[Rfam]
Shown here is a 109-nucleotide sequence from Oleiagrimonas soli, a member of the family "Manganese Mn2+ riboswitch aptamer (yybP-ykoY)".
From the family's description: This RNA was originally discovered in E. coli during a large scale screen and was named SraF. The family was later found to exist upstream of related families of protein genes in many bacteria, including the the yybP and ykoK genes in B. subtilis.
It scores 58 bits against the family's covariance model.
The base pairs follow the family's consensus structure.
RNA sequence: GCCCGCUCCAUCGGGGAGUAGCCGACCGGCGACGACAUGCGUCGGGGCGCGCGUCAACACACUUGAUCGACCGAUCAUGGCGCGCGCGAUGCGGAGCCCAUCCGCUUCC
Dot-bracket structure: .........................(((..............))).((((((((((.......(((((....)))))))))))))))......................